[Rfam]
RNA sequence: AAGUCCGGGUGUCCGCCAGUCAGCGAGAUUUCGCCCACUGGCGCUGUUCUU
Numbered sequence: 001a002a003g004u005c006c007g008g009g010u011g012u013c014c015g016c017c018a019g020u021c022a023g024c025g026a027g028a029u030u031u032c033g034c035c036c037a038c039u040g041g042c043g044c045u046g047u048u049c050u051u
Base pairs, nucleotide, nucleotide: 014043015042016041017040018039019038020037023034024033025032026031
The record is a 51-nucleotide sequence from Govanella unica, which matches "ffh sRNA" in Rfam. A reference for the family is Meyer et al. (2009), "Identification of candidate structured RNAs in the marine organism 'Candidatus Pelagibacter ubique'", BMC Genomics. The organism belongs to Govanella, within Bacteria. By type it is a small RNA. The family's consensus secondary structure is taken from published work.